The record is an 89-nucleotide RNA sequence from Streptomyces caelestis, which matches "Streptomyces RNA 3202" in Rfam.
From the family's description: Identified by deep sequencing of transcriptome at the end of exponential growth phase. Appears smaller on northern blot than sequencing transcript. This indicates processing step.
The family's RNA type in Rfam is small RNA.
A reference for the family is Vockenhuber et al. (2011), "Deep sequencing-based identification of small non-coding RNAs in Streptomyces coelicolor", RNA Biol.
The base pairs follow the family's consensus structure.
[Rfam]
RNA sequence: CCACGUCCCGACGCACACCCCCCCCCGGCGCCGGGACUUUCCAAGCCGGGUUCGGCGCCCUCCCCCCGGGCGUCGGGCCCGGCUUUCUC
Numbered sequence: 001c002c003a004c005g006u007c008c009c010g011a012c013g014c015a016c017a018c019c020c021c022c023c024c025c026c027g028g029c030g031c032c033g034g035g036a037c038u039u040u041c042c043a044a045g046c047c048g049g050g051u052u053c054g055g056c057g058c059c060c061u062c063c064c065c066c067c068g069g070g071c072g073u074c075g076g077g078c079c080c081g082g083c084u085u086u087c088u089c
Stems, first nucleotide, its partner, number of pairs: 005037006012030003043085018